[Rfam]
RNA sequence: UGGAGAAGGGGAGCACGUGCAAAUAGGCCGGAGUGGAUCGGUUUGCACGUGCCCUGCUUCUCCAAC
Numbered sequence: 001u002g003g004a005g006a007a008g009g010g011g012a013g014c015a016c017g018u019g020c021a022a023a024u025a026g027g028c029c030g031g032a033g034u035g036g037a038u039c040g041g042u043u044u045g046c047a048c049g050u051g052c053c054c055u056g057c058u059u060c061u062c063c064a065a066c
Stems, first nucleotide, its partner, number of pairs: 001064008010055002013052012028036002
This 66-nucleotide sequence from Daucus carota belongs to the Rfam family "MIR164 microRNA precursor family". Pairs were carried over by alignment from the consensus structure, which was predicted with RNAalifold. A search with the family's covariance model found it, with a score of 71 bits. Its family is annotated with RISC complex and miRNA-mediated post-transcriptional gene silencing in the Gene Ontology.